Shown here is a 129-nucleotide RNA from Rhododendron simsii, a member of the family "U11 spliceosomal RNA". It scores 42 bits against the family's covariance model. Rfam 15.1 lists 2,595 matches to the family in 1,202 species. Its Rfam clan is "U1 clan". Pairs were carried over by alignment from the consensus structure, which is taken from published work. By type it is a spliceosomal small nuclear RNA.
RNA sequence: AAAAAGGGUUGGUUGGCUAAACAUGCCAUGCCCGCCCUAGUUAGGUGGGUGCUGUACGGCUAUAGAGACAAAUGGCCGACAUAAUUUGUGGGACUUUUAUAGGGAUGGCUCGCUUUGACCGAUCCUCCA
Numbered sequence: 001a002a003a004a005a006g007g008g009u010u011g012g013u014u015g016g017c018u019a020a021a022c023a024u025g026c027c028a029u030g031c032c033c034g035c036c037c038u039a040g041u042u043a044g045g046u047g048g049g050u051g052c053u054g055u056a057c058g059g060c061u062a063u064a065g066a067g068a069c070a071a072a073u074g075g076c077c078g079a080c081a082u083a084a085u086u087u088g089u090g091g092g093a094c095u096u097u098u099a100u101a102g103g104g105a106u107g108g109c110u111c112g113c114u115u116u117g118a119c120c121g122a123u124c125c126u127c128c129a
Stems, first nucleotide, its partner, number of pairs: 008080005014028004029051008052075004058069001101126002104124003108120001110118003